[Rfam]
RNA sequence: AACCAUACGCUAGGCGUAUGGUUCCGGGUAGCUUUCAGCGGUUUAUUAAAAAAGCCCCUCUUAGUGCAAAAAUAAAUUUUGGUUCGCCAACCAAAUUUAUCUAGCUAGGAG
Numbered sequence: 001a002a003c004c005a006u007a008c009g010c011u012a013g014g015c016g017u018a019u020g021g022u023u024c025c026g027g028g029u030a031g032c033u034u035u036c037a038g039c040g041g042u043u044u045a046u047u048a049a050a051a052a053a054g055c056c057c058c059u060c061u062u063a064g065u066g067c068a069a070a071a072a073u074a075a076a077u078u079u080u081g082g083u084u085c086g087c088c089a090a091c092c093a094a095a096u097u098u099a100u101c102u103a104g105c106u107a108g109g110a111g
Stems, first nucleotide, its partner, number of pairs: 001023010028042002031039003058111007072100002075098002078095006